This 41-nucleotide RNA sequence belongs to the Rfam family "Ocean-VII RNA".
[Rfam]
RNA sequence: UGAGUACCAGAGAUCAGAAGGGGAGAACAAGACCCCUAGAC
Numbered sequence: 001u002g003a004g005u006a007c008c009a010g011a012g013a014u015c016a017g018a019a020g021g022g023g024a025g026a027a028c029a030a031g032a033c034c035c036c037u038a039g040a041c
Stems, first nucleotide, its partner, number of pairs: 019037005